[Rfam]
RNA sequence: GGCACAAAUUCGAUGUAUGGUAGUUUAGUAGGGUCAAAUGAUCCUUCUAAUCUACUCUACUUCACAUUUGGGCCC
Dot-bracket structure: (((.(((((..((.(((.(((((.((((.(.((((....)))).).)))).))))).))).))..))))).))).
mir-5928 microRNA precursor family: a 75-nucleotide sequence from Haemonchus placei. The family's consensus secondary structure was predicted with RNAalifold. The organism belongs to Haemonchus, within Eukaryota. The match comes from Rfam's covariance-model search (66 bits). Its family is annotated with RISC complex and miRNA-mediated post-transcriptional gene silencing in the Gene Ontology.